The family of this 126-nucleotide sequence from Lactococcus lactis is "Ribosomal protein L20 leader". The base pairs follow the family's consensus structure, which was predicted with CMfinder. It is one of the family's seed sequences.

RNA sequence: GUUGAAAAGCAGAAGCACCCGCUUCUCGCCUUAGAGGUUAUAGCCCUGGGCAAACGAAUGGAAUUAUUCAAAAACGAAUGUUUUCAUGAGCGGGGCGAGAUUGUCGUUCCGCUUUUGUUUUUCUUU
Numbered sequence: 001g002u003u004g005a006a007a008a009g010c011a012g013a014a015g016c017a018c019c020c021g022c023u024u025c026u027c028g029c030c031u032u033a034g035a036g037g038u039u040a041u042a043g044c045c046c047u048g049g050g051c052a053a054a055c056g057a058a059u060g061g062a063a064u065u066a067u068u069c070a071a072a073a074a075c076g077a078a079u080g081u082u083u084u085c086a087u088g089a090g091c092g093g094g095g096c097g098a099g100a101u102u103g104u105c106g107u108u109c110c111g112c113u114u115u116u117g118u119u120u121u122u123c124u125u126u
Stems, first nucleotide, its partner, number of pairs: 011026006028051003034046001036044001089113010